The record is a 127-nucleotide RNA sequence from Alkaliphilus serpentinus, which matches "c-di-AMP riboswitch aptamer (ydaO/yuaA leader)" in Rfam.
Lineage of the source: Bacteria > Clostridia > Peptostreptococcales > Natronincolaceae > Alkaliphilus.
Pairs were carried over by alignment from the consensus structure.
Rfam describes the family as follows. This family represents a conserved RNA structure found upstream of the ydaO and yuaA genes in Bacillus subtilis and related genes in other bacteria.

RNA sequence: ACAUUUUGUACGCUGAAUUCUCAUAUGAAGCGGGGGAACCAAUUUUUUGGGGUGAAUCCUUUAUGGUAGGGUCAACUCUUUCGAUCCGAAUCCGUCAGCUAACCUCGUAAGCGUUGAAAGAGGAGGA
Numbered sequence: 001a002c003a004u005u006u007u008g009u010a011c012g013c014u015g016a017a018u019u020c021u022c023a024u025a026u027g028a029a030g031c032g033g034g035g036g037a038a039c040c041a042a043u044u045u046u047u048u049g050g051g052g053u054g055a056a057u058c059c060u061u062u063a064u065g066g067u068a069g070g071g072u073c074a075a076c077u078c079u080u081u082c083g084a085u086c087c088g089a090a091u092c093c094g095u096c097a098g099c100u101a102a103c104c105u106c107g108u109a110a111g112c113g114u115u116g117a118a119a120g121a122g123g124a125g126g127a
Stems, first nucleotide, its partner, number of pairs: 011113004018029003030108006040049002050093003058066002069087004
Dot-bracket structure: ..........((((...(((......)))((((((....((......))(((.....((.....))..((((...........))))...))).........)))))).))))..............